[Rfam]
RNA sequence: CCGUGCUAAGCGGGGAGGUAGCGGUGCCCUGUACUCGCAAUCCGCUCUAGCGAGGCCGAACUCCUUUCCGAGGCUAACUCUCUGUAGUGCUGCCUCGAGUAAGUGGUGUUGACGCCUGGGUCCCGCGCAAUGAGAACCCAUGAACCAUGUCAGGUCCGGAAGGAAGCAGCAUUAAGUGGACCCUCUCAUGUGCCGCGGGGUAGCCUGGGCCGAGCUAACUGCUCGAGUAACGACUAUGGAAGCUAGUCGACGAAAGGUGCACGG
Number, nucleotide and partner (000 for none) at each position: 001c264002c263003g262004u261005g260006c259007u000008a000009a000010g056011c055012g030013g029014g028015g027016a000017g025018g000019u023020a000021g000022c000023g019024g000025u017026g000027c015028c014029c013030u012031g000032u000033a000034c054035u053036c052037g051038c050039a000040a000041u000042c000043c000044g000045c000046u000047c000048u000049a000050g038051c037052g036053a035054g034055g011056c010057c000058g000059a000060a000061c000062u000063c257064c256065u255066u254067u253068c252069c000070g000071a000072g248073g247074c246075u245076a244077a000078c000079u242080c000081u240082c239083u238084g237085u236086a235087g234088u233089g000090c000091u229092g228093c000094c000095u226096c225097g224098a223099g222100u221101a000102a000103g219104u218105g216106g215107u214108g000109u000110u000111g000112a000113c000114g210115c209116c208117u207118g206119g205120g204121u203122c199123c198124c197125g196126c195127g194128c190129a189130a000131u188132g187133a186134g185135a184136a000137c000138c179139c178140a177141u176142g000143a000144a000145c000146c000147a172148u171149g170150u169151c000152a000153g000154g000155u164156c163157c162158g000159g000160a000161a000162g157163g156164a155165a000166g000167c000168a000169g150170c149171a148172u147173u000174a000175a000176g141177u140178g139179g138180a000181c000182c000183c000184u135185c134186u133187c132188a131189u129190g128191u000192g000193c000194c127195g126196c125197g124198g123199g122200g000201u000202a000203g121204c120205c119206u118207g117208g116209g115210c114211c000212g000213a000214g107215c106216u105217a000218a104219c103220u000221g100222c099223u098224c097225g096226a095227g000228u092229a091230a000231c000232g000233a088234c087235u086236a085237u084238g083239g082240a081241a000242g079243c000244u076245a075246g074247u073248c072249g000250a000251c000252g068253a067254a066255a065256g064257g063258u000259g006260c005261a004262c003263g002264g001